RNA sequence: GCCGGUCCUCGGUAGUGGCCACCGGACGCUCCCCUCCAGGGACGCCGUGGGCUUCGAUCGAUGACCGGC
Numbered sequence: 001g002c003c004g005g006u007c008c009u010c011g012g013u014a015g016u017g018g019c020c021a022c023c024g025g026a027c028g029c030u031c032c033c034c035u036c037c038a039g040g041g042a043c044g045c046c047g048u049g050g051g052c053u054u055c056g057a058u059c060g061a062u063g064a065c066c067g068g069c
Stems, first nucleotide, its partner, number of pairs: 001069007009061005017053004023047003030042003
The family of this 69-nucleotide RNA from Nocardiopsis algeriensis is "Actino-pnp RNA". Pairs were carried over by alignment from the consensus structure, which is taken from published work. A search with the family's covariance model found it, with a score of 63 bits.